[Rfam]
RNA sequence: GGUCUCGAUUUCCUGGGGGGUGGGCUCAGUCUGUUCCACCUCCCCUCAGACUAGCCUAGAUCAAAGGCAGGGUUCUCUGCAUACUAGUAUGGUGGGUCAAGAAAUCAGCGCCAACAUGGGCUAUCCCUGCCAUACUUUU
Numbered sequence: 001g002g003u004c005u006c007g008a009u010u011u012c013c014u015g016g017g018g019g020g021u022g023g024g025c026u027c028a029g030u031c032u033g034u035u036c037c038a039c040c041u042c043c044c045c046u047c048a049g050a051c052u053a054g055c056c057u058a059g060a061u062c063a064a065a066g067g068c069a070g071g072g073u074u075c076u077c078u079g080c081a082u083a084c085u086a087g088u089a090u091g092g093u094g095g096g097u098c099a100a101g102a103a104a105u106c107a108g109c110g111c112c113a114a115c116a117u118g119g120g121c122u123a124u125c126c127c128u129g130c131c132a133u134a135c136u137u138u139u
Base pairs, nucleotide, nucleotide: 002056004054005053007051015044016043017042018041019040020039021038022037023036024035066131067130068129070127071126072125076120077119078118085113087111088110
The family of this 139-nucleotide RNA sequence from Sorex araneus is "Small Cajal body specific RNA 21".
The source organism's lineage runs through Eukaryota, Metazoa, Euteleostomi, Soricidae and Sorex.
By type it is a small Cajal body RNA.
From the family's description: scaRNAs are a specific class of small nuclear RNAs which localise to the Cajal bodies and guide the modification of RNA polymerase II transcribed spliceosomal RNAs U1, U2, U4, U5 and U12. ACA68 (SCARNA21) is a member of the H/ACA class of snoRNAs that guide the sites of modification of uridines to pseudouridines.
Its family is annotated with nucleolus, Cajal body and RNA processing in the Gene Ontology.
A reference for the family is Darzacq et al. (2002), "Cajal body-specific small nuclear RNAs: a novel class of 2'-O-methylation and pseudouridylation guide RNAs", EMBO J.